[Rfam]
RNA sequence: UGUAUGAGCUAGGGGUGCCGGCCCGGUGGCCGGCUGAGAGAUCACCCUUCGAACCUGACCCGGUUAGUCCCGGCGUAGGAAAGCUUCCUGAAGCCUCC
Numbered sequence: 001u002g003u004a005u006g007a008g009c010u011a012g013g014g015g016u017g018c019c020g021g022c023c024c025g026g027u028g029g030c031c032g033g034c035u036g037a038g039a040g041a042u043c044a045c046c047c048u049u050c051g052a053a054c055c056u057g058a059c060c061c062g063g064u065u066a067g068u069c070c071c072g073g074c075g076u077a078g079g080a081a082a083g084c085u086u087c088c089u090g091a092a093g094c095c096u097c098c
Base pairs, nucleotide, nucleotide: 006086007085008084009083010082011048012047013046014045017034018033019032020031021030054079055078056077057076060073061072062071063070
Dot-bracket structure: .....(((((((((..(((((........)))))..........)))).....((((..((((......))))..))))..)))))............
This 98-nucleotide RNA sequence from Sulfuricaulis limicola belongs to the Rfam family "TPP riboswitch aptamer (THI element)". Taxonomically the source falls in Sulfuricaulis (Bacteria, Pseudomonadati, Acidiferrobacterales, Acidiferrobacteraceae). The literature on the family includes a 2006 paper in Nature by Serganov et al., "Structural basis for gene regulation by a thiamine pyrophosphate-sensing riboswitch". The family's consensus secondary structure is taken from published work. Rfam links the family to the GO term thiamine pyrophosphate binding.